[Rfam]
RNA sequence: CAAUCGACGAGGACCGUGUGAAUCAAGUAGUUUAGUGAUUCACGCGAUUCUCGUAAA
Dot-bracket structure: ......(((((((.(((((((((((..........))))))))))).)))))))...
RNA: Plastid-ccsA-ndhD-1 3UTR RNA
Organism: Helianthus annuus